[Rfam]
RNA sequence: AUAAAUAUAAUCGAAUAAACUCAUAUAAUUUUGGGGAGAUGGCCCAUAAGUUUCUACCGGAUGACCUAUUCAUCCGACUAUGAGUGAGUGCGGAUGCGAC
Numbered sequence: 001a002u003a004a005a006u007a008u009a010a011u012c013g014a015a016u017a018a019a020c021u022c023a024u025a026u027a028a029u030u031u032u033g034g035g036g037a038g039a040u041g042g043c044c045c046a047u048a049a050g051u052u053u054c055u056a057c058c059g060g061a062u063g064a065c066c067u068a069u070u071c072a073u074c075c076g077a078c079u080a081u082g083a084g085u086g087a088g089u090g091c092g093g094a095u096g097c098g099a100c
Stems, first nucleotide, its partner, number of pairs: 019085007029049002032046004058076007